[Rfam]
RNA sequence: UAGUGUUACAGUUCUUUUAGAAUUUAUCUAGCAGGCUUUCUGCUUUCUGCUGGGAAGCCCAU
Numbered sequence: 001u002a003g004u005g006u007u008a009c010a011g012u013u014c015u016u017u018u019a020g021a022a023u024u025u026a027u028c029u030a031g032c033a034g035g036c037u038u039u040c041u042g043c044u045u046u047c048u049g050c051u052g053g054g055a056a057g058c059c060c061a062u
Stems, first nucleotide, its partner, number of pairs: 034059008044049001
RNA: U7 small nuclear RNA